[Rfam]
Rfam assigns this 96-nucleotide sequence from Steatornis caripensis to the family "Small nucleolar RNA SNORD21". Rfam classes the family as a C/D-box small nucleolar RNA. Pairs were carried over by alignment from the consensus structure, which was predicted with PFOLD. The match comes from Rfam's covariance-model search (85 bits). Lineage of the source: Eukaryota > Metazoa > Deuterostomia > Sauropsida > Steatornis.
RNA sequence: GCUAUGUGAUGAUACUCCCGAUGACUGAACGCUCUGUAGUUGGUCCAUGGUGUGUAUGUGAUGUACUGCAAUUUUCAAGACGGGACUGAUGGCAGC
Numbered sequence: 001g002c003u004a005u006g007u008g009a010u011g012a013u014a015c016u017c018c019c020g021a022u023g024a025c026u027g028a029a030c031g032c033u034c035u036g037u038a039g040u041u042g043g044u045c046c047a048u049g050g051u052g053u054g055u056a057u058g059u060g061a062u063g064u065a066c067u068g069c070a071a072u073u074u075u076c077a078a079g080a081c082g083g084g085a086c087u088g089a090u091g092g093c094a095g096c
Base pairs, nucleotide, nucleotide: 001093002092003091004090